[Rfam]
RNA: T-box leader
Organism: Thermosinus carboxydivorans
RNA sequence: GAUAAUCCGAAGACGCAGGGUAGUAAGCACAUAAAGAUAGUCCAGAAAGUUGGCGGAUGAUGCGAGCCAACCUGUCGGUGUGCUGAACUCACUGCCGAGGAGCGGUCGUGAAGGAACUUUAGCGACUGACGGCUGACCGGCGUUAACGGUCCUAGAGCGGGCAGCGAUAGCUGCCAAGCAGGGUGGUACCGCGAAGUAUUUUCGUCCCUGGC
Numbered sequence: 001g002a003u004a005a006u007c008c009g010a011a012g013a014c015g016c017a018g019g020g021u022a023g024u025a026a027g028c029a030c031a032u033a034a035a036g037a038u039a040g041u042c043c044a045g046a047a048a049g050u051u052g053g054c055g056g057a058u059g060a061u062g063c064g065a066g067c068c069a070a071c072c073u074g075u076c077g078g079u080g081u082g083c084u085g086a087a088c089u090c091a092c093u094g095c096c097g098a099g100g101a102g103c104g105g106u107c108g109u110g111a112a113g114g115a116a117c118u119u120u121a122g123c124g125a126c127u128g129a130c131g132g133c134u135g136a137c138c139g140g141c142g143u144u145a146a147c148g149g150u151c152c153u154a155g156a157g158c159g160g161g162c163a164g165c166g167a168u169a170g171c172u173g174c175c176a177a178g179c180a181g182g183g184u185g186g187u188a189c190c191g192c193g194a195a196g197u198a199u200u201u202u203c204g205u206c207c208c209u210g211g212c
Stems, first nucleotide, its partner, number of pairs: 007100002015095004026084006038074003049071006103128007130142002160175006180209004191205005